[Rfam]
RNA sequence: UUCCAUGCUUUUCCACAGCUUUCUUGAACUUCUUCGACAUGAAUUUAGAUCCCUCUAUCGGAAUAUAUGGAGGAUUAUUAUGAAGAAGAUGGAAGUUCAAGAAAGCUGUGGGACAACAUGAAAA
Numbered sequence: 001u002u003c004c005a006u007g008c009u010u011u012u013c014c015a016c017a018g019c020u021u022u023c024u025u026g027a028a029c030u031u032c033u034u035c036g037a038c039a040u041g042a043a044u045u046u047a048g049a050u051c052c053c054u055c056u057a058u059c060g061g062a063a064u065a066u067a068u069g070g071a072g073g074a075u076u077a078u079u080a081u082g083a084a085g086a087a088g089a090u091g092g093a094a095g096u097u098c099a100a101g102a103a104a105g106c107u108g109u110g111g112g113a114c115a116a117c118a119u120g121a122a123a124a
Stems, first nucleotide, its partner, number of pairs: 004120004013111003017107006024100004029095005

Shown here is a 124-nucleotide RNA sequence from Olea europaea, a member of the family "MIR396 microRNA precursor family". The family's consensus secondary structure was predicted with WAR. Rfam 15.1 lists 744 matches to the family in 207 species. The organism belongs to Olea europaea, within Eukaryota. Gene Ontology terms of the family: miRNA-mediated post-transcriptional gene silencing and RISC complex.